RNA: mir-194 microRNA precursor family
Organism: Bos taurus
RNA sequence: UGGCUCCCACCCCCUGUAACAGCAACUCCAUGUGGAAGUACCUCUAGUUCCAGUGGGGCUGCUGUUAUCUGGGGUGGGGGC
Numbered sequence: 001u002g003g004c005u006c007c008c009a010c011c012c013c014c015u016g017u018a019a020c021a022g023c024a025a026c027u028c029c030a031u032g033u034g035g036a037a038g039u040a041c042c043u044c045u046a047g048u049u050c051c052a053g054u055g056g057g058g059c060u061g062c063u064g065u066u067a068u069c070u071g072g073g074g075u076g077g078g079g080g081c
Base pairs, nucleotide, nucleotide: 010074011073012072016068017067018066019065020064021063022062023061026058027057028056029055030054031053033052034051035050